[Rfam]
RNA sequence: UUUGGUUUCUUGCUUUCCCAAAGAGCAAGUGGUGCGGAUGGAGGAAACUCCCGCCAGGUUUCUUGUUUCCUGUAAAAGAAUAAGUGGCGUGCAUGGCA
Numbered sequence: 001u002u003u004g005g006u007u008u009c010u011u012g013c014u015u016u017c018c019c020a021a022a023g024a025g026c027a028a029g030u031g032g033u034g035c036g037g038a039u040g041g042a043g044g045a046a047a048c049u050c051c052c053g054c055c056a057g058g059u060u061u062c063u064u065g066u067u068u069c070c071u072g073u074a075a076a077a078g079a080a081u082a083a084g085u086g087g088c089g090u091g092c093a094u095g096g097c098a
Base pairs, nucleotide, nucleotide: 009029010028011027012026013025014024016023039053040052041051043049044048055072056071057070058069062084063083064082065081066080067079
This 98-nucleotide RNA belongs to the Rfam family "wcaG RNA". The sequence is in the family's curated seed alignment. Rfam classes the family as a cis-regulatory element.